[Rfam]
RNA sequence: ACACAGGAAGGAGGUGGUUCGAAUAAUGAGUAAUUCGAGGACGCGUGAGGUGGCUGCCAGCUAGGCGCCUCCGCUGCAACGGAUUCUCGUAGCGCGAGCGCUGAGCGAAUCCCAGGCAGUCACCCGGCCCCCGAGUCCCAGAUCUUGUCCGAUCUGGAUCGCGUGAGUUGCAUCCGCGAUAUGACUCGGGGGUCGUACCUG
Numbered sequence: 001a002c003a004c005a006g007g008a009a010g011g012a013g014g015u016g017g018u019u020c021g022a023a024u025a026a027u028g029a030g031u032a033a034u035u036c037g038a039g040g041a042c043g044c045g046u047g048a049g050g051u052g053g054c055u056g057c058c059a060g061c062u063a064g065g066c067g068c069c070u071c072c073g074c075u076g077c078a079a080c081g082g083a084u085u086c087u088c089g090u091a092g093c094g095c096g097a098g099c100g101c102u103g104a105g106c107g108a109a110u111c112c113c114a115g116g117c118a119g120u121c122a123c124c125c126g127g128c129c130c131c132c133g134a135g136u137c138c139c140a141g142a143u144c145u146u147g148u149c150c151g152a153u154c155u156g157g158a159u160c161g162c163g164u165g166a167g168u169u170g171c172a173u174c175c176g177c178g179a180u181a182u183g184a185c186u187c188g189g190g191g192g193u194c195g196u197a198c199c200u201g
Base pairs, nucleotide, nucleotide: 013058014057015056016055017054018053060106061105062104064102065101067099068098070096072094073093074092125195126194127193128192129191130190131189132188133187134186135185136184137183138157139156140155141154142153143152
RNA: Actinobacteria sRNA Ms_IGR-5